[Rfam]
RNA sequence: AGGUGUCAAGGGCAAAUCAUCCGCGAGGGUGAGGCGCAAAGCCAUCGGGGCUCCAGCGGAUCUGGAGCCGGCCGGGCUGCCACU
Number, nucleotide and partner (000 for none) at each position: 001a000002g000003g000004u000005g000006u000007c000008a000009a000010g000011g000012g037013c036014a000015a000016a000017u032018c031019a030020u029021c028022c027023g000024c000025g000026a000027g022028g021029g020030u019031g018032a017033g000034g000035c000036g013037c012038a000039a000040a078041g077042c076043c075044a000045u000046c074047g073048g072049g069050g068051c067052u066053c065054c064055a063056g000057c000058g000059g000060a000061u000062c000063u055064g054065g053066a052067g051068c050069c049070g000071g000072c048073c047074g046075g043076g042077c041078u040079g000080c000081c000082a000083c000084u000